[Rfam]
RNA sequence: UAGGACGGUCCACUGACGCAUGACGUUGUACUGAUAAUAUAGUGUCGAAAUAACCUUGAAAAUUUGAGGGAUGACCUCAUUUAAUCUCCAGUAGCAAUUUUGACCUACAUUGGAGGUGUUAUGCGUCUGGAUCGUCUUAC
Number, nucleotide and partner (000 for none) at each position: 001u000002a138003g137004g136005a135006c134007g133008g132009u131010c130011c129012a128013c000014u000015g127016a126017c125018g124019c123020a122021u000022g120023a119024c118025g045026u044027u000028g000029u041030a040031c000032u039033g000034a000035u000036a000037a000038u000039a032040u030041a029042g000043u000044g026045u025046c000047g000048a000049a000050a000051u000052a000053a000054c069055c068056u067057u066058g065059a064060a000061a000062a000063u000064u059065u058066g057067a056068g055069g054070g081071a080072u079073g078074a000075c000076c000077u000078c073079a072080u071081u070082u000083a000084a117085u116086c115087u114088c113089c112090a111091g110092u109093a000094g000095c000096a000097a000098u000099u000100u000101u000102g000103a000104c000105c000106u000107a000108c000109a092110u091111u090112g089113g088114a087115g086116g085117u084118g024119u023120u022121a000122u020123g019124c018125g017126u016127c015128u012129g011130g010131a009132u008133c007134g006135u005136c004137u003138u002139a000140c000
Yersinia sRNA 155(RyfD): a 140-nucleotide sequence from Serratia plymuthica. For this family Rfam cites "Temperature-responsive in vitro RNA structurome of Yersinia pseudotuberculosis" (Righetti et al., Proc Natl Acad Sci U S A, 2016). The sequence is in the family's curated seed alignment. Rfam's curators write: The sRNA was identified by and is confirmed to have a stable secondary structure by using genome-wide structure probing at different temperatures. The function is unknown. Rfam classes the family as a small RNA.